[Rfam]
RNA: GA-cis RNA
RNA sequence: UUGAGGAGGGGACUUUGUUGACGCCAGUCAACAACUCUAAUGUCCCCGACGACUUGCCGCUGAGCGUAUGCGAAGGGGCACUUCCUUGU
Number, nucleotide and partner (000 for none) at each position: 001u000002u000003g000004a000005g000006g000007a000008g047009g046010g045011g044012a043013c042014u000015u000016u033017g032018u031019u030020g029021a028022c000023g000024c000025c000026a000027g000028u021029c020030a019031a018032c017033a016034a000035c000036u000037c000038u000039a000040a000041u000042g013043u012044c011045c010046c009047c008048g000049a000050c000051g000052a000053c000054u000055u000056g079057c078058c077059g000060c075061u074062g000063a000064g071065c070066g000067u000068a000069u000070g065071c064072g000073a000074a061075g060076g000077g058078g057079c056080a000081c000082u000083u000084c000085c000086u000087u000088g000089u000